RNA sequence: UAAGAGGGUGAUACGAAUGCCUUCUAUUCACUGUGCCAUCUUGUUUCCGUAGAUGAUCAGAGGGGAAAAGAAGAGCUAGAAGAAUGAACAUCCUUUUUUAAGCUUGUUCAAUCCAUGAGCGUCCUCAUACUGUCCGAAGUAUCGCUUGGUCCAAUUGGAUCAUUCAAUGGCUUCGGUCGGUACUGCGCAAGUGGGACAUGC
Numbered sequence: 001u002a003a004g005a006g007g008g009u010g011a012u013a014c015g016a017a018u019g020c021c022u023u024c025u026a027u028u029c030a031c032u033g034u035g036c037c038a039u040c041u042u043g044u045u046u047c048c049g050u051a052g053a054u055g056a057u058c059a060g061a062g063g064g065g066a067a068a069a070g071a072a073g074a075g076c077u078a079g080a081a082g083a084a085u086g087a088a089c090a091u092c093c094u095u096u097u098u099u100a101a102g103c104u105u106g107u108u109c110a111a112u113c114c115a116u117g118a119g120c121g122u123c124c125u126c127a128u129a130c131u132g133u134c135c136g137a138a139g140u141a142u143c144g145c146u147u148g149g150u151c152c153a154a155u156u157g158g159a160u161c162a163u164u165c166a167a168u169g170g171c172u173u174c175g176g177u178c179g180g181u182a183c184u185g186c187g188c189a190a191g192u193g194g195g196a197c198a199u200g201c
Base pairs, nucleotide, nucleotide: 019076020075022072023071031062032061034059035058037055038054039053040052041051112195113194114193115192116191119188120187121186130180131179132178134176135175136174137173138172139171140170142169150159151158